[Rfam]
RNA sequence: UCCUAGCCCUGAUGGGAAUGGCAUCCUUUUAUGGCGGGGUUCGCCAUAAAAGAUAUAAUGGACAGCAGGAAUAGCU
Numbered sequence: 001u002c003c004u005a006g007c008c009c010u011g012a013u014g015g016g017a018a019u020g021g022c023a024u025c026c027u028u029u030u031a032u033g034g035c036g037g038g039g040u041u042c043g044c045c046a047u048a049a050a051a052g053a054u055a056u057a058a059u060g061g062a063c064a065g066c067a068g069g070a071a072u073a074g075c076u
Base pairs, nucleotide, nucleotide: 009068010067011066013064014063018059019058023054024053025052029049030048031047032046033045034044035043036042
Annotation:
The record is a 76-nucleotide RNA from Flavobacterium hercynium, which matches "Flavo-1 RNA" in Rfam. The family's RNA type in Rfam is small RNA. The family's consensus secondary structure is taken from published work.